Shown here is a 75-nucleotide RNA sequence from Propithecus coquereli, a member of the family "mir-320 microRNA precursor family". The source organism's lineage runs through Eukaryota, Deuterostomia, Amniota, Eutheria and Propithecus.

RNA sequence: CUGCAAUAAGGCCGUCUCUUCCCAGUUCUUCUGGAAUUGGGAAAAGCUGGGUUGAGAGGGCAAAAAAAAGAAAAG
Numbered sequence: 001c002u003g004c005a006a007u008a009a010g011g012c013c014g015u016c017u018c019u020u021c022c023c024a025g026u027u028c029u030u031c032u033g034g035a036a037u038u039g040g041g042a043a044a045a046g047c048u049g050g051g052u053u054g055a056g057a058g059g060g061c062a063a064a065a066a067a068a069a070g071a072a073a074a075g
Stems, first nucleotide, its partner, number of pairs: 015057004021051005029043003032039002
Dot-bracket structure: ..............((((..(((((...(((((....)).)))...)))))..))))..................
Pairs were carried over by alignment from the consensus structure, which was predicted with RNAalifold.